[Rfam]
RNA: Alphaproteobacterial ar14
RNA sequence: GGUCAUCGGCAAACGCACUCCUCCUCCCAGUGUUUGUCGACGGGACCAACAACACCUCCUCCUCCCAGUUGUUGGUCAGUAUCUGAAGCCCGGCGUAUCCUCCUCCCACGCCGGGCUUCUUCC
Numbered sequence: 001g002g003u004c005a006u007c008g009g010c011a012a013a014c015g016c017a018c019u020c021c022u023c024c025u026c027c028c029a030g031u032g033u034u035u036g037u038c039g040a041c042g043g044g045a046c047c048a049a050c051a052a053c054a055c056c057u058c059c060u061c062c063u064c065c066c067a068g069u070u071g072u073u074g075g076u077c078a079g080u081a082u083c084u085g086a087a088g089c090c091c092g093g094c095g096u097a098u099c100c101u102c103c104u105c106c107c108a109c110g111c112c113g114g115g116c117u118u119c120u121u122c123c
Base pairs, nucleotide, nucleotide: 007039008038009037010036011035012034013033014032015031016030044077045076046075047074048073049072050071051070052069053068086118087117088116089115090114091113092112093111094110095109096108